[Rfam]
RNA sequence: AGGCGUUAAGAAAAAAUCCGCACAUAUGUCGACACAUUGCUCUGGGUGCCCAAAGUUGGGUGGAGAAUGAGGACAUAUGGAGGCCUAAC
Number, nucleotide and partner (000 for none) at each position: 001a000002g000003g000004c000005g000006u000007u000008a000009a000010g000011a000012a000013a000014a000015a000016a000017u000018c000019c000020g000021c000022a000023c079024a078025u077026a076027u075028g074029u073030c072031g000032a000033c000034a000035c069036a068037u067038u066039g000040c065041u064042c063043u062044g000045g000046g000047u000048g061049c060050c059051c058052a057053a000054a000055g000056u000057u052058g051059g050060g049061u048062g043063g042064a041065g040066a038067a037068u036069g035070a000071g000072g030073a029074c028075a027076u026077a025078u024079g023080g000081a000082g000083g000084c000085c000086u000087a000088a000089c000
A member of the RNA family "t44 RNA" from Acinetobacter nectaris, 89 nucleotides long. Lineage of the source: Bacteria > Pseudomonadati > Pseudomonadota > Moraxellaceae > Acinetobacter nectaris. It is annotated as a small RNA.